[Rfam]
RNA sequence: ACUGGGAGCGUGGCGUCUCCUGUAAUCGAGCUACUUCGAGGUCGGAUUCAGCGGAUGGUUUGAGGUCGGGAGAUCUGGUGCAGGGUUUCUUACGUUGACCGGGUGUCCACACUAAGCACGGCGUUCAAUAUGGGCGUCCUGAAGGAGUUUGGGACGGCCAGGUUAGCCAAGGAGGGGCGAACCGGGCCAGGGGGGAAACCCAGCAGCCAAAAGUCCCCGCGUCGUGCAGUAGUGGGAUCGCGCCUGGGAGUAGGAGUCCUGUCUCAGCCCGACCAAUAUAGCUAGACCUGGAUCCUU
Number, nucleotide and partner (000 for none) at each position: 001a042002c041003u040004g021005g020006g019007a018008g017009c000010g000011u000012g000013g000014c000015g000016u000017c008018u007019c006020c005021u004022g000023u000024a000025a000026u039027c038028g037029a000030g000031c000032u000033a000034c000035u000036u000037c028038g027039a026040g003041g002042u001043c000044g295045g294046a293047u292048u291049c290050a289051g288052c000053g000054g000055a000056u284057g283058g282059u281060u280061u000062g000063a000064g274065g273066u272067c271068g270069g269070g268071a000072g000073a000074u000075c267076u266077g265078g264079u000080g262081c261082a260083g259084g258085g257086u256087u255088u000089c254090u253091u252092a251093c250094g000095u248096u000097g000098a000099c247100c246101g245102g244103g243104u242105g241106u240107c236108c235109a000110c234111a233112c232113u231114a230115a000116g227117c226118a225119c224120g223121g222122c221123g220124u219125u165126c000127a164128a163129u162130a000131u160132g159133g158134g000135c156136g155137u154138c153139c152140u151141g150142a149143a148144g000145g000146a000147g000148u143149u142150u141151g140152g139153g138154a137155c136156g135157g000158c133159c132160a131161g000162g129163u128164u127165a125166g000167c171168c000169a000170a000171g167172g000173a000174g217175g216176g215177g214178c213179g000180a000181a000182c000183c000184g000185g208186g207187c206188c000189a000190g000191g000192g201193g200194g199195g000196a000197a000198a000199c194200c193201c192202a000203g000204c000205a000206g187207c186208c185209a000210a000211a000212a000213g178214u177215c176216c175217c174218c000219g124220c123221g122222u121223c120224g119225u118226g117227c116228a000229g000230u114231a113232g112233u111234g110235g108236g107237a000238u000239c000240g106241c105242g104243c103244c102245u101246g100247g099248g095249a000250g093251u092252a091253g090254g089255a087256g086257u085258c084259c083260u082261g081262u080263c000264u078265c077266a076267g075268c070269c069270c068271g067272a066273c065274c064275a000276a000277u000278a000279u000280a060281g059282c058283u057284a056285g000286a000287c000288c051289u050290g049291g048292a047293u046294c045295c044296u000297u000

Rfam assigns this 297-nucleotide RNA sequence from Psylliodes chrysocephalus to the family "Metazoan signal recognition particle RNA". The signal recognition particle (SRP) is a universally conserved ribonucleoprotein. It is involved in the co-translational targeting of proteins to membranes. The eukaryotic SRP consists of a 300-nucleotide 7S RNA and six proteins: SRPs 72, 68, 54, 19, 14, and 9. The literature on the family includes a 2002 paper in Curr Opin Struct Biol by Wild et al., "Towards the structure of the mammalian signal recognition particle". The organism belongs to Psylliodes, within Eukaryota. The base pairs follow the family's consensus structure, which is taken from published work.